[Rfam]
Rfam assigns this 73-nucleotide sequence from Chrysemys picta to the family "Epstein-Barr virus stable intronic sequence RNA 2". Pairs were carried over by alignment from the consensus structure. It scores 49 bits against the family's covariance model.
RNA sequence: GGCUUGGGCGGCGAUUUAAAGGGCCCGGGGCUCCGAUGGCGGGGCCCGGGCCUUUUAAAUCACUGCCCGAGCC
Numbered sequence: 001g002g003c004u005u006g007g008g009c010g011g012c013g014a015u016u017u018a019a020a021g022g023g024c025c026c027g028g029g030g031c032u033c034c035g036a037u038g039g040c041g042g043g044g045c046c047c048g049g050g051c052c053u054u055u056u057a058a059a060u061c062a063c064u065g066c067c068c069g070a071g072c073c
Base pairs, nucleotide, nucleotide: 001073002072003071004070005069006068007067008066009065010064011063015059016058017057018056019055020054021053022052023051024050025049026048027047028046029045031044032043033042034041035040